[Rfam]
RNA sequence: UCACUAGCCCUUAAUCUUGUUGCAAUAGAGGGAGAGAACAGGCAAGACC
Dot-bracket structure: [[.....[[.[[[.(((((......]]..]]].].]......)))))..
RNA: Exoribonuclease-resistant RNA (xrRNA) plant-infecting virus (class 3)